mir-124 microRNA precursor family: a 70-nucleotide RNA sequence from Notodromas monacha. It scores 56 bits against the family's covariance model. On this family, see Lai et al., Genome Biol 2003: "Computational identification of Drosophila microRNA genes". Rfam links the family to the GO terms RISC complex and miRNA-mediated post-transcriptional gene silencing.
[Rfam]
RNA sequence: GGCUCUGCGUGUUCACUACUGGCCUUUUGUGGAUUCAUUUGCAUAAGGCACGCGGUGAAUGCCAAGAGCU
Numbered sequence: 001g002g003c004u005c006u007g008c009g010u011g012u013u014c015a016c017u018a019c020u021g022g023c024c025u026u027u028u029g030u031g032g033a034u035u036c037a038u039u040u041g042c043a044u045a046a047g048g049c050a051c052g053c054g055g056u057g058a059a060u061g062c063c064a065a066g067a068g069c070u
Base pairs, nucleotide, nucleotide: 003068004067005066006065009062010061011060012059013058014057015056016055019052023048024047025046026045028043029042030041